[Rfam]
The record is a 92-nucleotide sequence from Deinococcus cavernae, which matches "c-di-GMP-I-GGC riboswitch aptamer" in Rfam.
RNA sequence: CUCGAUAAAGGCAAACCCUCCGUGAGGAGGGGACGCAAAGCCCACGGGACUUCUCCUGUCUGUCAGACAAGAAGUUGGCCGGGUUUCCGAAG
Numbered sequence: 001c002u003c004g005a006u007a008a009a010g011g012c013a014a015a016c017c018c019u020c021c022g023u024g025a026g027g028a029g030g031g032g033a034c035g036c037a038a039a040g041c042c043c044a045c046g047g048g049a050c051u052u053c054u055c056c057u058g059u060c061u062g063u064c065a066g067a068c069a070a071g072a073a074g075u076u077g078g079c080c081g082g083g084u085u086u087c088c089g090a091a092g
Stems, first nucleotide, its partner, number of pairs: 001092001003089002011036002016031006034078001039085004045081003048076007
The literature on the family includes a 2012 paper in Biochemistry by Smith et al., "Structural and biochemical characterization of linear dinucleotide analogues bound to the c-di-GMP-I aptamer". A search with the family's covariance model found it, with a score of 61 bits.